[Rfam]
RNA: Group II catalytic intron D1-D4-5
RNA sequence: GAGAACUGAUAUUCCGAUAGGUGGAAUGAAGGGGUAACGCCCUGAAACACCUACCUUACAAACUGCGAUAUGCGGUAAUUCUAUGUAACAAGAAUCACGGUAUAAAGCUCGCCAAAGUCGGCAGAAGUACACCCAAACAGUAACGCUGUGGAAAGUGUUCCAGAGGUGGAAUAUGUGUAUGAUAUGCCGGAGGUCUAUAAA
Numbered sequence: 001g002a003g004a005a006c007u008g009a010u011a012u013u014c015c016g017a018u019a020g021g022u023g024g025a026a027u028g029a030a031g032g033g034g035u036a037a038c039g040c041c042c043u044g045a046a047a048c049a050c051c052u053a054c055c056u057u058a059c060a061a062a063c064u065g066c067g068a069u070a071u072g073c074g075g076u077a078a079u080u081c082u083a084u085g086u087a088a089c090a091a092g093a094a095u096c097a098c099g100g101u102a103u104a105a106a107g108c109u110c111g112c113c114a115a116a117g118u119c120g121g122c123a124g125a126a127g128u129a130c131a132c133c134c135a136a137a138c139a140g141u142a143a144c145g146c147u148g149u150g151g152a153a154a155g156u157g158u159u160c161c162a163g164a165g166g167u168g169g170a171a172u173a174u175g176u177g178u179a180u181g182a183u184a185u186g187c188c189g190g191a192g193g194u195c196u197a198u199a200a201a
Stems, first nucleotide, its partner, number of pairs: 018053006031043004054193004065112004069104005075098002078095005119189005127180006133151003139147002155174008